[Rfam]
RNA sequence: AAAGGGCAAGUAGUAUAGGGUGAGUACGCCUUGAUAGAGGAGGCUCCGGUUGAAAUCCGGACAUUGCCAGAAGGGACUCAGCAAUGAGUCUCUUUUUGUA
Numbered sequence: 001a002a003a004g005g006g007c008a009a010g011u012a013g014u015a016u017a018g019g020g021u022g023a024g025u026a027c028g029c030c031u032u033g034a035u036a037g038a039g040g041a042g043g044c045u046c047c048g049g050u051u052g053a054a055a056u057c058c059g060g061a062c063a064u065u066g067c068c069a070g071a072a073g074g075g076a077c078u079c080a081g082c083a084a085u086g087a088g089u090c091u092c093u094u095u096u097u098g099u100a
Stems, first nucleotide, its partner, number of pairs: 005068005010062001029040004045061005073092008
RNA: Streptococcus sRNA SpF41